This 106-nucleotide RNA from Desulfuromonas soudanensis belongs to the Rfam family "TPP riboswitch aptamer (THI element)". It scores 67 bits against the family's covariance model.

[Rfam]
RNA sequence: CUAGACCGCUAGGGGAGUGUUGCACUGAGAGUCCUGCCGCAAGGCCGGACGACCCUUAGAACCUGAUCCGGGUCAUUCCGGCGGAGGGAAGCGGCGAGAGGAAGCG
Number, nucleotide and partner (000 for none) at each position: 001c000002u000003a000004g000005a000006c094007c093008g092009c091010u090011a056012g055013g054014g053015g000016a000017g025018u024019g023020u000021u000022g000023c019024a018025c017026u000027g000028a000029g000030a000031g000032u049033c048034c047035u000036g045037c044038c043039g000040c000041a000042a000043g038044g037045c036046c000047g034048g033049a032050c000051g000052a000053c014054c013055c012056u011057u000058a000059g000060a000061a000062c087063c086064u085065g000066a000067u000068c081069c080070g079071g078072g000073u000074c000075a000076u000077u000078c071079c070080g069081g068082c000083g000084g000085a064086g063087g062088g000089a000090a010091g009092c008093g007094g006095c000096g000097a000098g000099a000100g000101g000102a000103a000104g000105c000106g000